[Rfam]
Annotation: The record is a 314-nucleotide sequence from Halodesulfurarchaeum formicicum, which matches "Archaeal signal recognition particle RNA" in Rfam. Its Rfam clan is "SRP clan". The source organism's lineage runs through Archaea, Methanobacteriota, Halobacteria, Halobacteriales and Halodesulfurarchaeum. Gene Ontology terms of the family: signal recognition particle, plasma membrane targeting and SRP-dependent cotranslational protein targeting to membrane, signal sequence recognition. The family's RNA type in Rfam is non-coding RNA gene.
Nucleotides: 314
Stems, first nucleotide, its partner, number of pairs: 001314008011064004015033006038060005069304007078295004082290001089285010100271005107264003112259001119255007126245008134236003138231003141180001143178005148171001150169001152167006183227007194219004202211003
Number, partner (000 for none) and nucleotide at each position: 001314a002313g003312g004311u005310g006309g007308a008307c009000u010000a011064g012063g013062c014061c015033g016032g017031g018030c019029g020028g021000u022000u023000u024000g025000g026000c027000c028020c029019c030018g031017c032016c033015c034000u035000u036000c037000g038060c039059c040058c041057g042056c043000a044000c045000c046000a047000u048000g049000g050000u051000c052000a053000u054000u055000a056042g057041c058040g059039g060038g061014g062013g063012c064011c065000g066000a067000a068000c069304g070303c071302c072301g073300a074299g075298g076000g077000c078295g079294u080293c081292c082290g083000g084000a085000c086000a087000g088000a089285c090284c091283g092282g093281u094280c095279c096278g097277g098276a099000c100271c101270c102269c103268g104267g105000a106000a107264g108263c109262c110000g111000a112259c113000a114000g115000c116000g117000a118000a119255g120254c121253c122252u123251c124250g125249u126245c127244c128243u129242u130241c131240g132239g133238g134236g135235a136234c137000a138231c139230c140229g141180g142000u143178u144177c145176g146175c147174g148171g149000g150169u151000c152167a153166c154165c155164c156163c157162u158000g159000c160000a161000g162157g163156g164155g165154g166153g167152u168000c169150g170000a171148u172000a173000c174147c175146g176145c177144g178143a179000u180141u181000u182000g183227u184226c185225g186224g187223u188222g189221g190000c191000a192000a193000c194219c195218c196217g197216u198000c199000a200000g201000g202211c203210a204209c205000g206000g207000a208000a209204g210203u211202g212000a213000g214000c215000a216197g217196c218195g219194g220000a221189c222188c223187a224186c225185c226184g227183a228000a229140c230139g231138g232000g233000c234136g235135u236134c237000g238133c239132u240131c241130g242129a243128a244127g245126g246000g247000u248000c249125a250124c251123g252122g253121g254120g255119u256000g257000g258000a259112g260000g261000a262109g263108g264107c265000g266000a267104c268103c269102g270101g271100g272000a273000c274000u275000a276098u277097c278096c279095g280094g281093g282092u283091c284090g285089g286000a287000a288000c289000g290082c291000c292081g293080g294079g295078c296000c297000a298075c299074c300073u301072c302071g303070g304069c305000c306000c307008g308007u309006c310005c311004a312003c313002c314001u